[Rfam]
RNA: Fungal signal recognition particle RNA
Organism: Pseudocercospora fuligena
RNA sequence: UAGCUGUAAUGGCUCAAUGGUCGAAAUCACUUCGUCCACAUCAGCACCCUGUCAAUCCAGUAGUAUGGCUCUGGUUUGAGUUCUAUAAUGAUUCUUCACUCAAGUGAGUAAUCCUUGAUGCUGAGAGGAUCCUAAGUUUGAGGAAUUGUUCAGGCUGGAAACAGCGCAAACACCCUCAAUUCAUGGAGCGGCAGUACCAGGAUAGCCGAUUGUUGGCGGGUGUGCGUGUGGGAUUUGAGGUGUGUGACGACUUUU
Numbered sequence: 001u002a003g004c005u006g007u008a009a010u011g012g013c014u015c016a017a018u019g020g021u022c023g024a025a026a027u028c029a030c031u032u033c034g035u036c037c038a039c040a041u042c043a044g045c046a047c048c049c050u051g052u053c054a055a056u057c058c059a060g061u062a063g064u065a066u067g068g069c070u071c072u073g074g075u076u077u078g079a080g081u082u083c084u085a086u087a088a089u090g091a092u093u094c095u096u097c098a099c100u101c102a103a104g105u106g107a108g109u110a111a112u113c114c115u116u117g118a119u120g121c122u123g124a125g126a127g128g129a130u131c132c133u134a135a136g137u138u139u140g141a142g143g144a145a146u147u148g149u150u151c152a153g154g155c156u157g158g159a160a161a162c163a164g165c166g167c168a169a170a171c172a173c174c175c176u177c178a179a180u181u182c183a184u185g186g187a188g189c190g191g192c193a194g195u196a197c198c199a200g201g202a203u204a205g206c207c208g209a210u211u212g213u214u215g216g217c218g219g220g221u222g223u224g225c226g227u228g229u230g231g232g233a234u235u236u237g238a239g240g241u242g243u244g245u246g247a248c249g250a251c252u253u254u255u
Stems, first nucleotide, its partner, number of pairs: 002014003019252005028242007036232001037230003044225004048220007061212004066208005071200005076194003080189007088181001090131001092127005097120001100118005106113002132136001138179006147172004155164003